[Rfam]
Rfam assigns this 78-nucleotide RNA from Chinchilla lanigera to the family "Small nucleolar RNA SNORD47". Pairs were carried over by alignment from the consensus structure, which was predicted with ILM. It scores 91 bits against the family's covariance model. It is annotated as a C/D-box small nucleolar RNA.
RNA sequence: AACCGAUGAUGUGAUGAUUCUGCCAAAUGAAGUAAAGUGAUAUCACCUAAAAAGCCGUUCCAUUUUGAUUCUGAGGUU
Number, nucleotide and partner (000 for none) at each position: 001a078002a077003c076004c075005g000006a000007u000008g000009a000010u000011g000012u000013g000014a000015u000016g000017a000018u000019u000020c000021u000022g000023c000024c000025a000026a000027a000028u000029g000030a000031a000032g000033u000034a000035a000036a000037g000038u000039g000040a000041u000042a000043u000044c000045a000046c000047c000048u000049a000050a000051a000052a000053a000054g000055c000056c000057g000058u000059u000060c000061c000062a000063u000064u000065u000066u000067g000068a000069u000070u000071c000072u000073g000074a000075g004076g003077u002078u001